The family of this 80-nucleotide RNA sequence from Ancylostoma caninum is "SmY spliceosomal RNA". NCBI's taxonomy places the organism under Eukaryota, Metazoa, Ecdysozoa, Rhabditina, Ancylostoma. Pairs were carried over by alignment from the consensus structure, which is taken from published work. A reference for the family is MacMorris et al. (2007), "A novel family of C. elegans snRNPs contains proteins associated with trans-splicing", RNA.

RNA sequence: GAGAUCUGAUUUACUUGCUCAGGGCCUUUAGUAAGACCCUCUGUAUGAAUUUUUGGAAACCUCUGCUUAGGUAGAGGUUA
Numbered sequence: 001g002a003g004a005u006c007u008g009a010u011u012u013a014c015u016u017g018c019u020c021a022g023g024g025c026c027u028u029u030a031g032u033a034a035g036a037c038c039c040u041c042u043g044u045a046u047g048a049a050u051u052u053u054u055g056g057a058a059a060c061c062u063c064u065g066c067u068u069a070g071g072u073a074g075a076g077g078u079u080a
Stems, first nucleotide, its partner, number of pairs: 022039003026035003058079009